[Rfam]
This 81-nucleotide RNA from [Clostridium] symbiosum belongs to the Rfam family "ZMP/ZTP riboswitch aptamer (pfl RNA motif)". NCBI's taxonomy places the organism under Bacteria, Clostridia, Lachnospiraceae, Otoolea, [Clostridium] symbiosum. The family's consensus secondary structure is taken from published work.
RNA sequence: UGGUGAUCAUAUGACUGACGGAACAAGUGGAAGACCACGUGGAGUAUGAUCGAUAACCGGCCGACCGUCUGGGCAGAAAAA
Numbered sequence: 001u002g003g004u005g006a007u008c009a010u011a012u013g014a015c016u017g018a019c020g021g022a023a024c025a026a027g028u029g030g031a032a033g034a035c036c037a038c039g040u041g042g043a044g045u046a047u048g049a050u051c052g053a054u055a056a057c058c059g060g061c062c063g064a065c066c067g068u069c070u071g072g073g074c075a076g077a078a079a080a081a
Stems, first nucleotide, its partner, number of pairs: 004052009015041001017069005027038004058076001060074003
About this RNA:
For this family Rfam cites "Metal Ion-Mediated Nucleobase Recognition by the ZTP Riboswitch" (Trausch et al., Chem Biol, 2015).